[Rfam]
A member of the RNA family "Small nucleolar RNA SNORA40" from Alligator mississippiensis, 131 nucleotides long. The match comes from Rfam's covariance-model search (58 bits). The snoRNA ACA 40 belongs to the H/ACA family of snoRNAs and guides the pseudouridylation of 28S rRNA subunit at position U4565. The family has 28 seed sequences and 2,550 matches in Rfam 15.1.
RNA sequence: AGCACUAUUCUUUUUUGUUUUGUCUUUUGAUCUGGACAAAAACUGAGAACUAAGUGCUAAUAGUAAAAUCACUCUUUUGCAACCCACAGUUUAUUGUGAUAUGAGCUGUGUUACUAGUAAGAGGGGACAAU
Numbered sequence: 001a002g003c004a005c006u007a008u009u010c011u012u013u014u015u016u017g018u019u020u021u022g023u024c025u026u027u028u029g030a031u032c033u034g035g036a037c038a039a040a041a042a043c044u045g046a047g048a049a050c051u052a053a054g055u056g057c058u059a060a061u062a063g064u065a066a067a068a069u070c071a072c073u074c075u076u077u078u079g080c081a082a083c084c085c086a087c088a089g090u091u092u093a094u095u096g097u098g099a100u101a102u103g104a105g106c107u108g109u110g111u112u113a114c115u116a117g118u119a120a121g122a123g124g125g126g127a128c129a130a131u
Stems, first nucleotide, its partner, number of pairs: 001058006008048001012042007023034001069127002072125002075122005085110010